This 75-nucleotide RNA sequence from Turnera subulata belongs to the Rfam family "MIR473 microRNA precursor family".
Rfam 15.1 lists 189 matches to the family in 90 species.
Its family is annotated with RISC complex and miRNA-mediated post-transcriptional gene silencing in the Gene Ontology.
The literature on the family includes a 2005 paper in Plant Cell by Lu et al., "Novel and mechanical stress-responsive MicroRNAs in Populus trichocarpa that are absent from Arabidopsis".
RNA sequence: AUUGCUCACUCUCCCUCAAGGGCUUUUGUCACUGCCUUAAACACCAAGACCGAGGUUCUUAGGGAGAGUGGAUAA
Numbered sequence: 001a002u003u004g005c006u007c008a009c010u011c012u013c014c015c016u017c018a019a020g021g022g023c024u025u026u027u028g029u030c031a032c033u034g035c036c037u038u039a040a041a042c043a044c045c046a047a048g049a050c051c052g053a054g055g056u057u058c059u060u061a062g063g064g065a066g067a068g069u070g071g072a073u074a075a
Stems, first nucleotide, its partner, number of pairs: 006071010018060009